[Rfam]
RNA sequence: CACGCGGUGGUUCGCAAACAUCCCACCGUAAUAAAAAACUAGAAACGA
Numbered sequence: 001c002a003c004g005c006g007g008u009g010g011u012u013c014g015c016a017a018a019c020a021u022c023c024c025a026c027c028g029u030a031a032u033a034a035a036a037a038a039c040u041a042g043a044a045a046c047g048a
Base pairs, nucleotide, nucleotide: 006027007026008025009024010023016040
Rfam assigns this 48-nucleotide sequence from Ligilactobacillus ruminis to the family "PreQ1 (pre queuosine) riboswitch aptamer". This family is a bacterial riboswitch that binds to the metabolite preQ1, an intermediate in the biosynthesis of the modified nucleoside queuosine from GTP. One example of this riboswitch is located in the leader of the Bacillus subtilis ykvJKLM (queCDEF) operon which encodes four genes necessary for queuosine production. PreQ1 binding to the riboswitch aptamer is thought to induce premature transcription termination within the leader to down-regulate expression of these genes. It scores 39 bits against the family's covariance model.